[Rfam]
RNA: Small nucleolar RNA SNORA38
RNA sequence: UCCUCCUACAAAGGCGUGUCUAUGGUUCCCCAUCUUUGGACGCGUAAGAACUGGAGGCAAAGAAAUGUGGAUUUGGAGAAGUCUGGGGCUAGCUUAUUCCCCACAGGCUCAAGAUCAACCAUCCCACAUAA
Numbered sequence: 001u002c003c004u005c006c007u008a009c010a011a012a013g014g015c016g017u018g019u020c021u022a023u024g025g026u027u028c029c030c031c032a033u034c035u036u037u038g039g040a041c042g043c044g045u046a047a048g049a050a051c052u053g054g055a056g057g058c059a060a061a062g063a064a065a066u067g068u069g070g071a072u073u074u075g076g077a078g079a080a081g082u083c084u085g086g087g088g089c090u091a092g093c094u095u096a097u098u099c100c101c102c103a104c105a106g107g108c109u110c111a112a113g114a115u116c117a118a119c120c121a122u123c124c125c126a127c128a129u130a131a
Base pairs, nucleotide, nucleotide: 002057003056004055005054006053015044016043017042018041019040020039021038024030025029069124070123071122073121091109092108093107094106095105097103